RNA: GlmZ RNA activator of glmS mRNA
RNA sequence: GUAGAUGCUCAUCCCACUUCUUAUGACAGCUUAGUCUUCAUAAACCCAGGGAUGAUGCAGAGCCAAUUUUAGGGUGCCUAUUGUCCAUGUAAACGAUGUUGAGCGGUAACCAAUCCUCCUUUCAUCACAUACCGGGCGUAACGUUGAGUGAGGCACCAAUCUGCUGACUGUAGACCUGAUAUUUUAUGACACUUGCUUAAUCGGCAAGUGUUUUUUU
Numbered sequence: 001g002u003a004g005a006u007g008c009u010c011a012u013c014c015c016a017c018u019u020c021u022u023a024u025g026a027c028a029g030c031u032u033a034g035u036c037u038u039c040a041u042a043a044a045c046c047c048a049g050g051g052a053u054g055a056u057g058c059a060g061a062g063c064c065a066a067u068u069u070u071a072g073g074g075u076g077c078c079u080a081u082u083g084u085c086c087a088u089g090u091a092a093a094c095g096a097u098g099u100u101g102a103g104c105g106g107u108a109a110c111c112a113a114u115c116c117u118c119c120u121u122u123c124a125u126c127a128c129a130u131a132c133c134g135g136g137c138g139u140a141a142c143g144u145u146g147a148g149u150g151a152g153g154c155a156c157c158a159a160u161c162u163g164c165u166g167a168c169u170g171u172a173g174a175c176c177u178g179a180u181a182u183u184u185u186a187u188g189a190c191a192c193u194u195g196c197u198u199a200a201u202c203g204g205c206a207a208g209u210g211u212u213u214u215u216u217u
Base pairs, nucleotide, nucleotide: 001063002062006059007058008057009055010054011053012052014051015050017049019042073157074156075155076154077153078152079151083137084136085135086134095126096125097124098123166175168173188212189211190210191209192208193207194206195205196204197203